[Rfam]
RNA: Enterococcus sRNA B11
RNA sequence: GGCAACUGCCUCGAAAGGUGGUGUCUAAUUAUGGCUUCAUUCUUGAUACUUAUUGUCGUCCCAAUUCUCGUGAAUAUUAUUUCAGGAGUUUUGGUGAAAUUAUUCGAUCGUUGGUUAAGUGAUCACGAUAAUAAGGGCAGUUGACUUAACCCAUACGUCUAUUAAUUAUAGAUGAUAAA
Numbered sequence: 001g002g003c004a005a006c007u008g009c010c011u012c013g014a015a016a017g018g019u020g021g022u023g024u025c026u027a028a029u030u031a032u033g034g035c036u037u038c039a040u041u042c043u044u045g046a047u048a049c050u051u052a053u054u055g056u057c058g059u060c061c062c063a064a065u066u067c068u069c070g071u072g073a074a075u076a077u078u079a080u081u082u083c084a085g086g087a088g089u090u091u092u093g094g095u096g097a098a099a100u101u102a103u104u105c106g107a108u109c110g111u112u113g114g115u116u117a118a119g120u121g122a123u124c125a126c127g128a129u130a131a132u133a134a135g136g137g138c139a140g141u142u143g144a145c146u147u148a149a150c151c152c153a154u155a156c157g158u159c160u161a162u163u164a165a166u167u168a169u170a171g172a173u174g175a176u177a178a179a
Stems, first nucleotide, its partner, number of pairs: 001145001003143006009021002012018001023035003050134010062072002076103002079100006104118001106116004156174005